[Rfam]
A member of the RNA family "DUF2800 RNA", 155 nucleotides long.
By type it is a cis-regulatory element.
RNA sequence: ACGCUGGAUGAUGCAUCCCCUGUACAAGGAUGGCUCAACGUCAUCCAGCGCGACAACUGAAAACACAGCUGACUAUUGAGCGGAAGGCUGCAAUCCGAAGCGGUGAGAACCGUACGGACUGCGGAUGGUUUACUGUUGCCUUCUUCAGCUGUGCU
Numbered sequence: 001a002c003g004c005u006g007g008a009u010g011a012u013g014c015a016u017c018c019c020c021u022g023u024a025c026a027a028g029g030a031u032g033g034c035u036c037a038a039c040g041u042c043a044u045c046c047a048g049c050g051c052g053a054c055a056a057c058u059g060a061a062a063a064c065a066c067a068g069c070u071g072a073c074u075a076u077u078g079a080g081c082g083g084a085a086g087g088c089u090g091c092a093a094u095c096c097g098a099a100g101c102g103g104u105g106a107g108a109a110c111c112g113u114a115c116g117g118a119c120u121g122c123g124g125a126u127g128g129u130u131u132a133c134u135g136u137u138g139c140c141u142u143c144u145u146c147a148g149c150u151g152u153g154c155u
Stems, first nucleotide, its partner, number of pairs: 002050004007045007014032005033081006066151007088124004100113005